[Rfam]
RNA sequence: GUGCAAUCGUAAUUCAGGUUGUGUCAAAAAAAUCAAAAUCAUGUCAAGUAUCUGACGCAACCACCAGUUCCCUGGUGUUGGCGCAGUAUUCGCGCACCCCCGGUCAAGCC
Numbered sequence: 001g002u003g004c005a006a007u008c009g010u011a012a013u014u015c016a017g018g019u020u021g022u023g024u025c026a027a028a029a030a031a032a033u034c035a036a037a038a039u040c041a042u043g044u045c046a047a048g049u050a051u052c053u054g055a056c057g058c059a060a061c062c063a064c065c066a067g068u069u070c071c072c073u074g075g076u077g078u079u080g081g082c083g084c085a086g087u088a089u090u091c092g093c094g095c096a097c098c099c100c101c102g103g104u105c106a107a108g109c110c
Stems, first nucleotide, its partner, number of pairs: 018061008074098003081095004
RNA: ArcZ RNA
Organism: Kluyvera cryocrescens